[Rfam]
RNA: HNH endonuclease-associated RNA and ORF (HEARO) RNA
Nucleotides: 223
Base pairs, nucleotide, nucleotide: 001066002065003064004063005062006061010042011041014039015038016037017036018035043055044054045053046052069209070208071207073205074088075087076086077085078084091203092202093201094200095199096198097197098196099195100194101193106138107137110132111131112130114129115128116127117126118219122214123213124212140184141183142182143181144180145179146178147177148176152175153174155172156171158169159168160167161166
Number, partner (000 for none) and nucleotide at each position: 001066g002065u003064c004063a005062a006061g007000a008000a009000c010042u011041c012000g013000u014039c015038g016037u017036u018035a019000a020000g021000u022000u023000u024000g025000c026000u027000a028000u029000u030000a031000a032000c033000u034000a035018u036017a037016a038015c039014g040000g041011g042010a043055g044054c045053u046052u047000u048000u049000u050000a051000c052046a053045a054044g055043c056000u057000c058000u059000a060000a061006c062005u063004u064003g065002a066001c067000c068000a069209g070208a071207c072000u073205a074088a075087g076086g077085u078084u079000c080000u081000u082000g083000a084078a085077a086076c087075c088074u089000a090000c091203g092202u093201u094200a095199u096198u097197c098196a099195a100194c101193u102000c103000a104000u105000g106138a107137a108000a109000c110132c111131u112130a113000u114129g115128a116127a117126u118219g119000c120000g121000u122214g123213c124212c125000a126117g127116u128115u129114c130112u131111a132110g133000c134000u135000c136000u137107u138106u139000c140184g141183u142182a143181c144180a145179a146178u147177u148176u149000u150000a151000a152175a153174c154000a155172g156171g157000c158169u159168u160167a161166a162000c163000g164000a165000g166161u167160u168159a169158a170000a171156c172155c173000a174153g175152u176148g177147a178146a179145u180144u181143g182142u183141a184140c185000a186000a187000a188000u189000g190000c191000a192000a193101g194100g195099u196098u197097g198096a199095a200094u201093a202092a203091c204000a205073u206000u207071g208070u209069c210000g211000a212124g213123g214122c215000u216000c217000a218000c219118u220000u221000u222000a223000c